A member of the RNA family "FMN riboswitch aptamer (RFN element)" from Dorea sp. D27, 126 nucleotides long. Taxonomically the source falls in Dorea (Bacteria, Bacillota, Clostridia, Lachnospirales).
RNA sequence: AAAUUCUUCAGGGGUCGGGUGCAAGUCCCAACCGGCGGUAUAGUCCGCGACCCGUGCCAGUGACGGUACGGCUGAUUUGGUGCAAUUCCAAAACCGACAGUAAAGUCUGGAUGAGAUGAAGAAAUG
Numbered sequence: 001a002a003a004u005u006c007u008u009c010a011g012g013g014g015u016c017g018g019g020u021g022c023a024a025g026u027c028c029c030a031a032c033c034g035g036c037g038g039u040a041u042a043g044u045c046c047g048c049g050a051c052c053c054g055u056g057c058c059a060g061u062g063a064c065g066g067u068a069c070g071g072c073u074g075a076u077u078u079g080g081u082g083c084a085a086u087u088c089c090a091a092a093a094c095c096g097a098c099a100g101u102a103a104a105g106u107c108u109g110g111a112u113g114a115g116a117u118g119a120a121g122a123a124a125u126g
Stems, first nucleotide, its partner, number of pairs: 004123007017029003031106002033096002035048004043094002052071002076092005098109003
Dot-bracket structure: ...(((((((......(((.......))).[[((((((....[[))))...((................))....(((((.......)))))]])).(((....]]))).......)))))))...